[Rfam]
RNA sequence: CCUCUUUCAUUUGCCGCCAUGAAUGCCUAUAUCAGGGGUGCUGGUUCGCCAGCUAUGGCAAUAAACUGUCAGUGCAAUAAACCUAUCGGACCCGGGGGCGGUACCCGGCGCCUCCACCCAAGCCCACUGAUUUUCCCUUUUCAAAACAGUGGGUUUCGGCGGGGGCGAAAUAGGAUCGACGAGGGCGUAAAGACUGUGCUUUUGCUCGGCAUUGUACCACCGUUAUCGGGCUUUCUUAAUAGUUGCAAACGACAACUAUGCUAUGGACAACGCUGUCGCUGCGUAAUGCAGUUCCGGUAGUCCACUAAGUCCCGUUGGUUAGCACCUUCAGGCGGGGUUCGGAGGCACCUGGCAACAGAAGCCUCCACU
Numbered sequence: 001c002c003u004c005u006u007u008c009a010u011u012u013g014c015c016g017c018c019a020u021g022a023a024u025g026c027c028u029a030u031a032u033c034a035g036g037g038g039u040g041c042u043g044g045u046u047c048g049c050c051a052g053c054u055a056u057g058g059c060a061a062u063a064a065a066c067u068g069u070c071a072g073u074g075c076a077a078u079a080a081a082c083c084u085a086u087c088g089g090a091c092c093c094g095g096g097g098g099c100g101g102u103a104c105c106c107g108g109c110g111c112c113u114c115c116a117c118c119c120a121a122g123c124c125c126a127c128u129g130a131u132u133u134u135c136c137c138u139u140u141u142c143a144a145a146a147c148a149g150u151g152g153g154u155u156u157c158g159g160c161g162g163g164g165g166c167g168a169a170a171u172a173g174g175a176u177c178g179a180c181g182a183g184g185g186c187g188u189a190a191a192g193a194c195u196g197u198g199c200u201u202u203u204g205c206u207c208g209g210c211a212u213u214g215u216a217c218c219a220c221c222g223u224u225a226u227c228g229g230g231c232u233u234u235c236u237u238a239a240u241a242g243u244u245g246c247a248a249a250c251g252a253c254a255a256c257u258a259u260g261c262u263a264u265g266g267a268c269a270a271c272g273c274u275g276u277c278g279c280u281g282c283g284u285a286a287u288g289c290a291g292u293u294c295c296g297g298u299a300g301u302c303c304a305c306u307a308a309g310u311c312c313c314g315u316u317g318g319u320u321a322g323c324a325c326c327u328u329c330a331g332g333c334g335g336g337g338u339u340c341g342g343a344g345g346c347a348c349c350u351g352g353c354a355a356c357a358g359a360a361g362c363c364u365c366c367a368c369u
Stems, first nucleotide, its partner, number of pairs: 040053005057206005068199002070196004082185003086182003092108005109167007207222003214231001217229002335350004341366006
Rfam assigns this 369-nucleotide sequence from Roseibium sp. TrichSKD4 to the family "Alphaproteobacteria transfer-messenger RNA". The family's consensus secondary structure is taken from published work. Taxonomically the source falls in Roseibium (Bacteria, Pseudomonadati, Alphaproteobacteria, Hyphomicrobiales). Rfam describes the family as follows. Bacterial tmRNA, also known as 10Sa RNA or SsrA, is named for its dual tRNA and mRNA-like properties. Its role is to liberate the mRNA from a stalled ribosome. To accomplish this part of the tmRNA is used as a reading frame that ends in a translation stop signal. The broken mRNA is replaced in the ribosome by the tmRNA and translation of the tmRNA leads to addition of a proteolysis tag to the incomplete protein enabling recognition by a protease. Recently a number of permuted tmRNA genes have been found encoded in two parts. tmRNAs have been identified in eubacteria and some chloroplasts but are absent from archaeal and eukaryote nuclear genomes. It is annotated as a non-coding RNA gene. Rfam links the family to the GO term RNA catabolic process.